[Rfam]
RNA sequence: UUUAUAUGUAGGCCUUUAGAUCACUUAAAGAGUAUUCAACAUCAGAUGAUCUAAAGGCCUAUACAUAAA
Numbered sequence: 001u002u003u004a005u006a007u008g009u010a011g012g013c014c015u016u017u018a019g020a021u022c023a024c025u026u027a028a029a030g031a032g033u034a035u036u037c038a039a040c041a042u043c044a045g046a047u048g049a050u051c052u053a054a055a056g057g058c059c060u061a062u063a064c065a066u067a068a069a
Base pairs, nucleotide, nucleotide: 002068003067004066005065007063009061010060011059012058013057014056015055016054017053018052019051020050021049022048023047026044028042030040
Rfam assigns this 69-nucleotide sequence from Homo sapiens to the family "mir-1245 microRNA precursor family". Taxonomically the source falls in Homo (Eukaryota, Bilateria, Mammalia, Euarchontoglires). Gene Ontology terms of the family: miRNA-mediated post-transcriptional gene silencing and RISC complex. Rfam's curators put it in the seed alignment. The family's consensus secondary structure was predicted with RNAalifold.